RNA sequence: CAUAUAUUAUGAUGGUAUGAUACUAAACCCCUAACGGGAAGUAUUGUGCCCUGAUAUUCUAUAUG
Dot-bracket structure: (((((........((((((((((.....(((....)))..)))))))).)).........)))))
Background:
A member of the RNA family "Selenocysteine insertion sequence 1" from Mytilus coruscus, 65 nucleotides long. For this family Rfam cites "A novel RNA structural motif in the selenocysteine insertion element of eukaryotic selenoprotein mRNAs" (Walczak et al., RNA, 1996). The match comes from Rfam's covariance-model search (38 bits). The family's consensus secondary structure is taken from published work.